This 409-nucleotide RNA sequence from Shimia litoralis belongs to the Rfam family "Bacterial RNase P class A". It scores 302 bits against the family's covariance model. Pairs were carried over by alignment from the consensus structure, which is taken from published work. Rfam classes the family as a ribozyme.

[Rfam]
RNA sequence: GCAGAGGGCUGGAUGGCCGCGGGGCCUUAGGGUCGCGAGGAAAGUCCGGACUCCACAAGGCAAUGGUGCCGGGUAACGCCCGGCUGGGGCAACCCAAGGGAAAGCGCCACAGAGAACAGACCGCUUUGGUGUGUCGCUUGCGGCAGACCAGAGUAAGGGUGAAACGGUGGAGUAAGAGACCACCGCGGGACUGGUAACAGGACCGGCAAGGCAAGCCCCACCAGGAGCAAUGCCGAAUAGGAACCUCGCGCGGGAUUGAUCGGUUCGCCGAUAUCGCCGCAGGGACGCUUUGGCCCAGAGGUUCGGGUUGGCAGCUAGAGAGAAUCUGGUAACAGAUUCUCAAGAUGAAUGGUCAUCCAGAGGAGGGUUCCUCCUUGGACAAAAUCCGGCUUAUAGGCCCUCUGCGCAA
Numbered sequence: 001g002c003a004g005a006g007g008g009c010u011g012g013a014u015g016g017c018c019g020c021g022g023g024g025c026c027u028u029a030g031g032g033u034c035g036c037g038a039g040g041a042a043a044g045u046c047c048g049g050a051c052u053c054c055a056c057a058a059g060g061c062a063a064u065g066g067u068g069c070c071g072g073g074u075a076a077c078g079c080c081c082g083g084c085u086g087g088g089g090c091a092a093c094c095c096a097a098g099g100g101a102a103a104g105c106g107c108c109a110c111a112g113a114g115a116a117c118a119g120a121c122c123g124c125u126u127u128g129g130u131g132u133g134u135c136g137c138u139u140g141c142g143g144c145a146g147a148c149c150a151g152a153g154u155a156a157g158g159g160u161g162a163a164a165c166g167g168u169g170g171a172g173u174a175a176g177a178g179a180c181c182a183c184c185g186c187g188g189g190a191c192u193g194g195u196a197a198c199a200g201g202a203c204c205g206g207c208a209a210g211g212c213a214a215g216c217c218c219c220a221c222c223a224g225g226a227g228c229a230a231u232g233c234c235g236a237a238u239a240g241g242a243a244c245c246u247c248g249c250g251c252g253g254g255a256u257u258g259a260u261c262g263g264u265u266c267g268c269c270g271a272u273a274u275c276g277c278c279g280c281a282g283g284g285a286c287g288c289u290u291u292g293g294c295c296c297a298g299a300g301g302u303u304c305g306g307g308u309u310g311g312c313a314g315c316u317a318g319a320g321a322g323a324a325u326c327u328g329g330u331a332a333c334a335g336a337u338u339c340u341c342a343a344g345a346u347g348a349a350u351g352g353u354c355a356u357c358c359a360g361a362g363g364a365g366g367g368u369u370c371c372u373c374c375u376u377g378g379a380c381a382a383a384a385u386c387c388g389g390c391u392u393a394u395a396g397g398c399c400c401u402c403u404g405c406g407c408a409a
Stems, first nucleotide, its partner, number of pairs: 001405010011394001012357007020037002023034004042392003046389005051227004059291002064223005069083005084098001085096004099218002104216002106212003121158002123154008166184005185207001186205003191200003231313004241304006282296003286292001321340008

Clan: RNaseP clan.
NCBI's taxonomy places the organism under Bacteria, Pseudomonadota, Alphaproteobacteria, Rhodobacterales, Shimia.